Shown here is a 155-nucleotide RNA from Oryza sativa, a member of the family "MIR807 microRNA precursor family". Its family is annotated with RISC complex and miRNA-mediated post-transcriptional gene silencing in the Gene Ontology. Taxonomically the source falls in Oryza sativa (Eukaryota, Liliopsida, commelinids, Poaceae). Pairs were carried over by alignment from the consensus structure, which was predicted with WAR.
RNA sequence: AACCACACUAUCAAUGAAUGGAUUCACCUGCGAGAUGACAUGACUGUUUCACCUAGAAUGAGGACAUGACAUCCUCAUCCUUGAUGCCACGUCCUCAUCCUUGAUGGAACAACCACGUUAUCUCAUGGGUGAAUCCAUUCAUCGAUAAUGUGGUU
Number, nucleotide and partner (000 for none) at each position: 001a155002a154003c153004c152005a151006c150007a149008c000009u147010a146011u145012c144013a000014a142015u141016g000017a139018a138019u137020g000021g135022a134023u133024u132025c131026a130027c129028c128029u000030g126031c000032g124033a123034g000035a121036u120037g119038a118039c117040a000041u115042g114043a000044c000045u111046g110047u109048u108049u000050c000051a105052c000053c000054u000055a101056g000057a000058a098059u000060g000061a000062g000063g093064a092065c091066a000067u000068g000069a000070c086071a085072u084073c083074c000075u000076c000077a000078u000079c000080c000081u000082u000083g073084a072085u071086g070087c000088c000089a000090c000091g065092u064093c063094c000095u000096c000097a000098u058099c000100c000101u055102u000103g000104a000105u051106g000107g000108a048109a047110c046111a045112a000113c000114c042115a041116c000117g039118u038119u037120a036121u035122c000123u033124c032125a000126u030127g000128g028129g027130u026131g025132a024133a023134u022135c021136c000137a019138u018139u017140c000141a015142u014143c000144g012145a011146u010147a009148a000149u007150g006151u005152g004153g003154u002155u001